[Rfam]
RNA: SAM-I/IV (S-adenosyl methionine) riboswitch aptamer
Organism: Croceibacter atlanticus
RNA sequence: CUUAAUUAUCAAGAAUCUCAAAGAGAGAUAGCAACCUGCAAUAACGAGCAAGGUGCUAAAAUAGAUAAGCCAAAUUCAAUUGGAAAAAAUGUUAAUUCA
Numbered sequence: 001c002u003u004a005a006u007u008a009u010c011a012a013g014a015a016u017c018u019c020a021a022a023g024a025g026a027g028a029u030a031g032c033a034a035c036c037u038g039c040a041a042u043a044a045c046g047a048g049c050a051a052g053g054u055g056c057u058a059a060a061a062u063a064g065a066u067a068a069g070c071c072a073a074a075u076u077c078a079a080u081u082g083g084a085a086a087a088a089a090u091g092u093u094a095a096u097u098c099a
Stems, first nucleotide, its partner, number of pairs: 006068005015029005030057003035053003038049002042095001044093001070083004